Shown here is an 86-nucleotide RNA sequence from Rissa tridactyla, a member of the family "NoRC associated RNA, pRNA". Rfam links the family to the GO term chromatin remodeling. Rfam classes the family as a non-coding RNA gene. It scores 35 bits against the family's covariance model. The family's consensus secondary structure is taken from published work.
Nucleotides: 086
Base pairs, nucleotide, nucleotide: 004083006081008080009079011078012077015075016074017073018072024062025061026060027058030052031051032050033049
Number, partner (000 for none) and nucleotide at each position: 001000c002000c003000a004083u005000g006081g007000u008080g009079g010000u011078u012077g013000g014000u015075g016074g017073c018072c019000c020000u021000g022000g023000u024062g025061c026060c027058c028000a029000u030052c031051c032050g033049g034000c035000u036000c037000c038000c039000u040000g041000g042000g043000a044000a045000g046000a047000c048000c049033c050032u051031g052030g053000g054000a055000c056000c057000a058027g059000u060026g061025g062024c063000c064000u065000c066000u067000g068000c069000c070000u071000u072018g073017g074016c075015c076000g077012u078011a079009c080008c081006c082000u083004g084000g085000a086000g